[Rfam]
RNA sequence: CAAUAUAAAUAAUUUGCUAUCCAUAUAAUCCUGAUAAUAUGGUUCGGGAGUUUCUACAAGAAGACCGAUAAUCUUCUUACUAUGGGUAAAUCCAUUAGGAAC
Number, nucleotide and partner (000 for none) at each position: 001c000002a000003a000004u000005a000006u000007a000008a000009a000010u000011a000012a000013u000014u000015u000016g000017c000018u088019a087020u086021c085022c084023a083024u082025a081026u000027a000028a000029u049030c048031c047032u046033g045034a044035u000036a000037a000038u000039a000040u000041g000042g000043u000044u034045c033046g032047g031048g030049a029050g000051u000052u000053u000054c000055u000056a000057c000058a078059a077060g076061a075062a074063g073064a072065c000066c000067g000068a000069u000070a000071a000072u064073c063074u062075u061076c060077u059078u058079a000080c000081u025082a024083u023084g022085g021086g020087u019088a018089a000090a000091u000092c000093c000094a000095u000096u000097a000098g000099g000100a000101a000102c000
RNA: Purine riboswitch aptamer
Organism: Fervidicella metallireducens